[Rfam]
RNA sequence: ACACUUACCUGGACGGGGUCAAUGGGUGAUCAACAAGGCCCAUGGCCUAAGUUGGUGACCUCCACUGCACUUGGGAGGGGUGCCCGCCUAAGAUCAGCCCAAGUUGGUUGAGCCUACAUCCUAGUAGGGGGGGCCUGCGUUCGCGCGACUCCUGC
Numbered sequence: 001a002c003a004c005u006u007a008c009c010u011g012g013a014c015g016g017g018g019u020c021a022a023u024g025g026g027u028g029a030u031c032a033a034c035a036a037g038g039c040c041c042a043u044g045g046c047c048u049a050a051g052u053u054g055g056u057g058a059c060c061u062c063c064a065c066u067g068c069a070c071u072u073g074g075g076a077g078g079g080g081u082g083c084c085c086g087c088c089u090a091a092g093a094u095c096a097g098c099c100c101a102a103g104u105u106g107g108u109u110g111a112g113c114c115u116a117c118a119u120c121c122u123a124g125u126a127g128g129g130g131g132g133g134c135c136u137g138c139g140u141u142c143g144c145g146c147g148a149c150u151c152c153u154g155c
Base pairs, nucleotide, nucleotide: 012120013119015117016048017047018046019045020044021043023042024041025040026039027038049089051087053086055083056082057081059079060078061077062075063074091115092114094111095110096109098107099106130153131152132151133150136147137146138145139144
RNA: U1 spliceosomal RNA